Shown here is an 84-nucleotide RNA from Menidia menidia, a member of the family "mir-25 microRNA precursor family".
Gene Ontology terms of the family: RISC complex and miRNA-mediated post-transcriptional gene silencing.
RNA sequence: AGCUGGUGUUGAGAGGCGGAGACUUGGGCAAUUGCCAGCCAUUCCUGAGGGCAUUGCACUUGUCUCGGUCUGACAGUGCCGGCA
Numbered sequence: 001a002g003c004u005g006g007u008g009u010u011g012a013g014a015g016g017c018g019g020a021g022a023c024u025u026g027g028g029c030a031a032u033u034g035c036c037a038g039c040c041a042u043u044c045c046u047g048a049g050g051g052c053a054u055u056g057c058a059c060u061u062g063u064c065u066c067g068g069u070c071u072g073a074c075a076g077u078g079c080c081g082g083c084a
Stems, first nucleotide, its partner, number of pairs: 002083003006079004014071004019066005028057005034052003037046002
Dot-bracket structure: .(((.((((....((((.(((((....(((((.(((((......))...))))))))....))))).))))....)))).))).